[Rfam]
RNA sequence: GGUCGUAAAUCUGAGGCCGUAGCAGAAGCACUCAUGGUGCAGCCCUGUCAGAUUUAAACGAAUCUGCAAAAUUCUGCU
Numbered sequence: 001g002g003u004c005g006u007a008a009a010u011c012u013g014a015g016g017c018c019g020u021a022g023c024a025g026a027a028g029c030a031c032u033c034a035u036g037g038u039g040c041a042g043c044c045c046u047g048u049c050a051g052a053u054u055u056a057a058a059c060g061a062a063u064c065u066g067c068a069a070a071a072u073u074c075u076g077c078u
Stems, first nucleotide, its partner, number of pairs: 013045001015044003021078007028040003049066007